A member of the RNA family "S4-Bacteroidia ribosomal protein leader", 33 nucleotides long. A reference for the family is Eckert and Weinberg (2020), "Discovery of 20 novel ribosomal leader candidates in bacteria and archaea", BMC Microbiol.
[Rfam]
RNA sequence: GACUGCAUCUUUUCCUUUCUGCAGUCGCGGCUG
Numbered sequence: 001g002a003c004u005g006c007a008u009c010u011u012u013u014c015c016u017u018u019c020u021g022c023a024g025u026c027g028c029g030g031c032u033g
Stems, first nucleotide, its partner, number of pairs: 001026007
Description:
Clan: Ribosomal Protein S4 Leader clan.